[Rfam]
RNA sequence: GCCCUUUGCAGCGCCGCGCGGAUCGCCUACAUUACGGGUGUCUCGGCAACGGGACUAUGGACAUAAACGCGCUCGGAAUAAGCGGAUCGGACCCGGGGGCGGUACCCGGCGGCUCCACCAAAUCAUCCCGUCGUUGGGGGGACCAUGGGGCCGAAAUAGGAUCGACGAACGUCUAAAGGGGUGGCUUUGUCCCGGUGAGGUACCACCGUUAUCGGUCCGUAAAGCAUAAUUGCCAACGACAAUCGUGCUCCGGUUGCCCUCGCUGCGUAAGCAGUGCGGAAAACCGAAAUCUAAGCCCUUGCGCCUAGCAGCGUAAGGCGGGGUUCGCAGGCACCUGGCAACAGAAGCCUGCACU
Dot-bracket structure: .......................................(((((......)))))...(((((.....((((((........((..(((...(((((.......)))))(((((((..............................)))))))............))).)).......)))).))..)))))((((..[[.[[[)))).....]]]]]......................................................................................................[[[[..((((((]]]]..........))))))...